[Rfam]
Rfam assigns this 184-nucleotide RNA from Halalkalibacter okhensis to the family "Lysine riboswitch aptamer". About the family: Riboswitches are metabolite binding domains within certain messenger RNAs that serve as precision sensors for their corresponding targets. Allosteric rearrangement of mRNA structure is mediated by ligand binding, and this results in modulation of gene expression.

RNA sequence: AGUGAGGGUAGAGGUGCAAGGAUCAUAAGUACUUUAGCGGAGGAGAAUGAGAUCUGUAGAUGCUAAGUGGAAAGGGAUACUUGCCGAAGUUAGUUGAGAUCUCAUGUCUCAUUAGCUGGGACUGUUCUGAACAAGGGCAGUACUGUCAUAUAGCAGAAUCGCUAUAUGGAGGGCUAUCUCACAC
Numbered sequence: 001a002g003u004g005a006g007g008g009u010a011g012a013g014g015u016g017c018a019a020g021g022a023u024c025a026u027a028a029g030u031a032c033u034u035u036a037g038c039g040g041a042g043g044a045g046a047a048u049g050a051g052a053u054c055u056g057u058a059g060a061u062g063c064u065a066a067g068u069g070g071a072a073a074g075g076g077a078u079a080c081u082u083g084c085c086g087a088a089g090u091u092a093g094u095u096g097a098g099a100u101c102u103c104a105u106g107u108c109u110c111a112u113u114a115g116c117u118g119g120g121a122c123u124g125u126u127c128u129g130a131a132c133a134a135g136g137g138c139a140g141u142a143c144u145g146u147c148a149u150a151u152a153g154c155a156g157a158a159u160c161g162c163u164a165u166a167u168g169g170a171g172g173g174c175u176a177u178c179u180c181a182c183a184c
Base pairs, nucleotide, nucleotide: 006179007178008177009176010175011174016084017083018082019081020080022078023077024076033067034066035065036064037063038062039061088117089116090115091114092113093112095111096110097109098108099107118144119143121141122140123139124138125137126136127135128134146169147168148167149166150165151164152163